[Rfam]
RNA sequence: UUGCGGGCUAACGGCAAGGUCUGAAGGAAGCCAUAGGAAGUUAGAGGUACACAGUGAAAGCGAACCUGAUUCGGCAUAAUAGAGAGGUAAGCGUGCGAAAUAGCGCAACGCCAUAUACUCAGUCAGCUCUAUCAUGUGCUUGAGGGUGGGAUUUCUAACAGGGAGCGAGU
Number, nucleotide and partner (000 for none) at each position: 001u017002u016003g015004c014005g000006g000007g000008c000009u000010a000011a000012c000013g000014g004015c003016a002017a001018g000019g000020u000021c000022u000023g000024a000025a000026g000027g000028a000029a000030g000031c000032c169033a000034u167035a000036g000037g000038a000039a000040g000041u158042u157043a156044g155045a154046g000047g152048u150049a000050c148051a147052c146053a000054g000055u000056g000057a000058a000059a000060g000061c000062g000063a000064a000065c145066c144067u143068g000069a141070u000071u000072c000073g000074g137075c136076a135077u000078a000079a132080u131081a130082g129083a128084g127085a000086g112087g111088u110089a000090a000091g106092c105093g104094u103095g000096c000097g000098a000099a000100a000101u000102a000103g094104c093105g092106c091107a000108a000109c000110g088111c087112c086113a000114u000115a000116u000117a000118c000119u000120c000121a000122g000123u000124c000125a000126g000127c084128u083129c082130u081131a080132u079133c000134a000135u076136g075137u074138g000139c000140u000141u069142g000143a067144g066145g065146g052147u051148g050149g000150g048151a000152u047153u000154u045155c044156u043157a042158a041159c000160a000161g000162g000163g000164a000165g000166c000167g034168a000169g032170u000
Rfam assigns this 170-nucleotide RNA sequence from Parashewanella spongiae to the family "Group II catalytic intron D1-D4-3". It scores 49 bits against the family's covariance model. Taxonomically the source falls in Parashewanella (Bacteria, Pseudomonadota, Alteromonadales, Shewanellaceae).